RNA sequence: GAUGCAUGAUGAUUUGCUUUUGGUCCGUGUUUAUGAAUCUCAGUGAUUUUACAAUCAAAAGCUCUGAUGUC
Number, nucleotide and partner (000 for none) at each position: 001g071002a070003u069004g068005c000006a000007u000008g000009a000010u000011g000012a000013u000014u000015u000016g000017c000018u000019u000020u000021u000022g000023g000024u000025c000026c000027g000028u000029g000030u000031u000032u000033a000034u000035g000036a000037a000038u000039c000040u000041c000042a000043g000044u000045g000046a000047u000048u000049u000050u000051a000052c000053a000054a000055u000056c000057a000058a000059a000060a000061g000062c000063u000064c000065u000066g000067a000068u004069g003070u002071c001
The record is a 71-nucleotide RNA sequence from Dendroctonus ponderosae, which matches "Small nucleolar RNA SNORD18" in Rfam. Its Rfam clan is "SNORD18 clan". The family's consensus secondary structure was predicted with PFOLD. NCBI's taxonomy places the organism under Eukaryota, Opisthokonta, Curculionidae, Scolytinae, Dendroctonus. By type it is a C/D-box small nucleolar RNA. On this family, see Prislei et al., Nucleic Acids Res 1993: "Two different snoRNAs are encoded in introns of amphibian and human L1 ribosomal protein genes".